RNA sequence: GGUCGAGAGCGUCAGCGACAAGCCCUGGCUCGCUGACCGGCAACCCUCCUUCACGGCGGGGUGCCCCAGGUGAUGACCCGGCGGAGGCCACCCCUCCGCAAGCGUGGACG
Numbered sequence: 001g002g003u004c005g006a007g008a009g010c011g012u013c014a015g016c017g018a019c020a021a022g023c024c025c026u027g028g029c030u031c032g033c034u035g036a037c038c039g040g041c042a043a044c045c046c047u048c049c050u051u052c053a054c055g056g057c058g059g060g061g062u063g064c065c066c067c068a069g070g071u072g073a074u075g076a077c078c079c080g081g082c083g084g085a086g087g088c089c090a091c092c093c094c095u096c097c098g099c100a101a102g103c104g105u106g107g108a109c110g
Stems, first nucleotide, its partner, number of pairs: 001078004009038001011037006021030002039065003044061003048056002081099007